Shown here is a 232-nucleotide part of an RNA from Clostridium fungisolvens, a member of the family "Bacterial large subunit ribosomal RNA". A search with the family's covariance model found it, with a score of 2940 bits. Its family is annotated with ribosome and structural constituent of ribosome in the Gene Ontology.

RNA sequence: GAGUUACGGUAUGUAGCGAGGUUAAGUACUUAAGGUACGGAGCCGAAGGGAAACCGAGUCUGAAUAGGGCGACUAGUUGCAUGCCGUAGACCCGAAACCGGGUGACCUAUCCAUGGCCAGGUUGAAGCGAAGGUAAAACUUCGUGGAGGACCGAACCACGUUGGUGUUGAAAAACCAUGGGAUGAGCUGUGGAUAGCGGAGAAAUUCCAAUCGAACUCGGAGAUAGCUGGUU
Numbered sequence: 001g002a003g004u005u006a007c008g009g010u011a012u013g014u015a016g017c018g019a020g021g022u023u024a025a026g027u028a029c030u031u032a033a034g035g036u037a038c039g040g041a042g043c044c045g046a047a048g049g050g051a052a053a054c055c056g057a058g059u060c061u062g063a064a065u066a067g068g069g070c071g072a073c074u075a076g077u078u079g080c081a082u083g084c085c086g087u088a089g090a091c092c093c094g095a096a097a098c099c100g101g102g103u104g105a106c107c108u109a110u111c112c113a114u115g116g117c118c119a120g121g122u123u124g125a126a127g128c129g130a131a132g133g134u135a136a137a138a139c140u141u142c143g144u145g146g147a148g149g150a151c152c153g154a155a156c157c158a159c160g161u162u163g164g165u166g167u168u169g170a171a172a173a174a175c176c177a178u179g180g181g182a183u184g185a186g187c188u189g190u191g192g193a194u195a196g197c198g199g200a201g202a203a204a205u206u207c208c209a210a211u212c213g214a215a216c217u218c219g220g221a222g223a224u225a226g227c228u229g230g231u232u
Stems, first nucleotide, its partner, number of pairs: 005088013020044004026038003048055002058070004091230002094227001098220006107196011118184001120152004127144006156181002159179001162177004198208003